A member of the RNA family "glmS glucosamine-6-phosphate activated ribozyme aptamer" from Aerococcus sp. Group 1, 157 nucleotides long. The match comes from Rfam's covariance-model search (82 bits). Pairs were carried over by alignment from the consensus structure, which is taken from published work. Taxonomically the source falls in Aerococcus (Bacteria, Bacillati, Bacillota, Lactobacillales).
[Rfam]
RNA sequence: UACAGACAGAUAGCGCCUGACUGAUUAAAGAGAUUUUUUCAGUGACGAGGACUAGGUUUAUCGAAGAUUCGGCGGGUGGCCUAGGGGUUGCACAAUCCAUAGAAAAGCACAAAAAUCAUUUUUAGCAAAUGAAACAAAAUCCUUUUCUCGUGCUUAA
Number, nucleotide and partner (000 for none) at each position: 001u000002a000003c000004a000005g000006a000007c000008a000009g000010a000011u000012a000013g000014c000015g000016c000017c000018u000019g000020a043021c042022u041023g040024a039025u000026u000027a036028a000029a034030g000031a000032g000033a000034u029035u000036u027037u000038u000039u024040c023041a022042g021043u020044g000045a000046c000047g000048a000049g000050g000051a000052c084053u083054a082055g081056g080057u000058u000059u000060a000061u072062c071063g070064a069065a000066g000067a000068u000069u064070c063071g062072g061073c000074g000075g000076g000077u000078g000079g000080c056081c055082u054083a053084g052085g098086g097087g096088u095089u094090g000091c000092a000093c000094a089095a088096u087097c086098c085099a000100u000101a000102g147103a146104a145105a144106a143107g142108c000109a000110c000111a000112a000113a000114a000115a000116u132117c131118a130119u129120u128121u127122u000123u000124a000125g000126c000127a121128a120129a119130u118131g117132a116133a000134a000135c000136a000137a000138a000139a000140u000141c000142c107143u106144u105145u104146u103147c102148u000149c000150g000151u000152g000153c000154u000155u000156a000157a000